[Rfam]
RNA sequence: UUUAGAACUCGAAAUAUAGGCUGAACAUUGAAUAAUAUAUGGGAUGUAUGACAGAUUCAGACGUCUCUUUUGUUGCUAAGAUUUGAACUUGAAAAUGAAAGAUUUGAACAUUGGACUCUUCAUGAAAGUUUUAGGCAUAUGUCUUAGCUUUCUAUC
Dot-bracket structure: ..(((((((.((.(((((.((((((.(((.....((....(((.(..(.....((.((.........((..(((...........)))..))........)).))......)..).)))..))...)))))))).).))))).))))..)))))..
RNA: MIR2912 microRNA precursor family